[Rfam]
RNA sequence: CUUACCUUUUAAAUUAGCCCCGUGAGGUUAGCAAAGGUGGAGAAAGUUACACUCUCAGUCUAUCUGGAAGAGCCUUUCUGCCUGCGCGCGGAGAGGCUCUUUUUAU
Numbered sequence: 001c002u003u004a005c006c007u008u009u010u011a012a013a014u015u016a017g018c019c020c021c022g023u024g025a026g027g028u029u030a031g032c033a034a035a036g037g038u039g040g041a042g043a044a045a046g047u048u049a050c051a052c053u054c055u056c057a058g059u060c061u062a063u064c065u066g067g068a069a070g071a072g073c074c075u076u077u078c079u080g081c082c083u084g085c086g087c088g089c090g091g092a093g094a095g096g097c098u099c100u101u102u103u104u105a106u
Stems, first nucleotide, its partner, number of pairs: 003039007014031006041065003045061002048058001068101014
RNA: PyrR binding site